Shown here is a 99-nucleotide RNA sequence from Pseudanabaenococcus habilitatus, a member of the family "TPP riboswitch aptamer (THI element)". The source organism's lineage runs through Bacteria, Bacillati, Cyanobacteriota, Pseudanabaenococcus and Pseudanabaenococcus habilitatus. It scores 57 bits against the family's covariance model. The family's consensus secondary structure is taken from published work.
Nucleotides: 099
Stems, first nucleotide, its partner, number of pairs: 008085003011050004016044001017036005056080004061074004
Number, partner (000 for none) and nucleotide at each position: 001000g002000g003000g004000a005000a006000a007000c008085g009084c010083u011050a012049g013048g014047a015000g016044u017036g018035u019034c020033u021032g022000g023000u024000u025000u026000a027000a028000u029000u030000u031000c032021c033020a034019g035018a036017c037000u038000g039000a040000g041000a042000u043000a044016a045000c046000a047014u048013c049012c050011u051000u052000a053000g054000a055000a056080c057079c058078u059077g060000u061074u062073c063072g064071g065000c066000u067000c068000a069000c070000a071064c072063c073062g074061g075000c076000g077059u078058a079057g080056g081000a082000a083010a084009g085008c086000a087000a088000a089000c090000u091000a092000u093000a094000g095000a096000g097000a098000a099000u
Rfam links the family to the GO term thiamine pyrophosphate binding.